This 83-nucleotide sequence from Musa acuminata belongs to the Rfam family "mir-156 microRNA precursor family". The family's consensus secondary structure was predicted with PFOLD. Rfam describes the family as follows. This family represents the plant microRNA (miRNA) precursor mir-156. On this family, see Ambros, Cell 2001: "microRNAs: tiny regulators with great potential". The match comes from Rfam's covariance-model search (65 bits).

[Rfam]
RNA sequence: UUGACAGAAGAGAGUGAGCACACAGCGGCGACCGCACCGCCUCGAUGCCGUCGCUGCUGCGUGCUCACUACUCUCUCUGUCAU
Dot-bracket structure: .(((((((.((((((((((((.(((...............................))).))))))))).)))..))))))).